[Rfam]
RNA: Small nucleolar RNA SNORD74
Organism: Aegotheles bennettii
RNA sequence: GUGCUCGCACAUGAUGAAAGCUAUGUUGGUAGGGACACCUGAAGGGUGAUGAACGCCAACGUAUCUGAGUUGAGCAC
Number, nucleotide and partner (000 for none) at each position: 001g077002u076003g075004c074005u073006c000007g000008c000009a000010c000011a000012u000013g000014a000015u000016g000017a000018a000019a000020g000021c000022u000023a000024u000025g000026u000027u000028g000029g000030u000031a000032g000033g000034g000035a000036c000037a000038c000039c000040u000041g000042a000043a000044g000045g000046g000047u000048g000049a000050u000051g000052a000053a000054c000055g000056c000057c000058a000059a000060c000061g000062u000063a000064u000065c000066u000067g000068a000069g000070u000071u000072g000073a005074g004075c003076a002077c001